[Rfam]
RNA sequence: CACACGUGAAGCUUGGGAUAGGCCGGGAGACAUCCGGUCCGUUCCGCCCGGUGGCGUUUUGAAAAAGACGCUGUUUGCUUCACGGGGGUUCAACCGGAAAAGGAGAAAAAGG
Numbered sequence: 001c002a003c004a005c006g007u008g009a010a011g012c013u014u015g016g017g018a019u020a021g022g023c024c025g026g027g028a029g030a031c032a033u034c035c036g037g038u039c040c041g042u043u044c045c046g047c048c049c050g051g052u053g054g055c056g057u058u059u060u061g062a063a064a065a066a067g068a069c070g071c072u073g074u075u076u077g078c079u080u081c082a083c084g085g086g087g088g089u090u091c092a093a094c095c096g097g098a099a100a101a102g103g104a105g106a107a108a109a110a111g112g
Stems, first nucleotide, its partner, number of pairs: 001087001003085001005084007015045002024036003053072008
RNA: rpsB sRNA